Small nucleolar RNA SNORA9: a 133-nucleotide sequence from Lepisosteus oculatus. Pairs were carried over by alignment from the consensus structure, which was predicted with PFOLD. ACA9 is a member of the H/ACA class of snoRNA that guide the sites of modification of uridines to pseudouridines. The source organism's lineage runs through Eukaryota, Eumetazoa, Deuterostomia, Craniata and Lepisosteus. Rfam 15.1 lists 1,202 matches to the family in 518 species.
RNA sequence: GUGCAGGCUAGUCAGCAAGGUGUGGUCUGAGGUGGCCCUGUCCUUUCCUGUAGUGCCUGCUAUAGAAAGCUGGGGUGGUUUGAGGCCUUGAUGUGUUCAAUUCACAGUAAGGUUAUAGAAACCUCAGACAGUC
Numbered sequence: 001g002u003g004c005a006g007g008c009u010a011g012u013c014a015g016c017a018a019g020g021u022g023u024g025g026u027c028u029g030a031g032g033u034g035g036c037c038c039u040g041u042c043c044u045u046u047c048c049u050g051u052a053g054u055g056c057c058u059g060c061u062a063u064a065g066a067a068a069g070c071u072g073g074g075g076u077g078g079u080u081u082g083a084g085g086c087c088u089u090g091a092u093g094u095g096u097u098c099a100a101u102u103c104a105c106a107g108u109a110a111g112g113u114u115a116u117a118g119a120a121a122c123c124u125c126a127g128a129c130a131g132u133c
Stems, first nucleotide, its partner, number of pairs: 003060006018044003024037004071126005086112005093105003